[Rfam]
RNA sequence: UGCGACGACAUGGGAGAGACCGGGUGCAUCCCGGCGCCGAAGGAGCAACCGCCCCGGAAACUUUCAGGCAGAAGGACCGGUCGUCAUC
Numbered sequence: 001u002g003c004g005a006c007g008a009c010a011u012g013g014g015a016g017a018g019a020c021c022g023g024g025u026g027c028a029u030c031c032c033g034g035c036g037c038c039g040a041a042g043g044a045g046c047a048a049c050c051g052c053c054c055c056g057g058a059a060a061c062u063u064u065c066a067g068g069c070a071g072a073a074g075g076a077c078c079g080g081u082c083g084u085c086a087u088c
Base pairs, nucleotide, nucleotide: 005084006083007082008081009080011079012078013077020034021033022032023031036069037068038067039065040064043063044062045061049057050056
RNA: Glycine riboswitch aptamer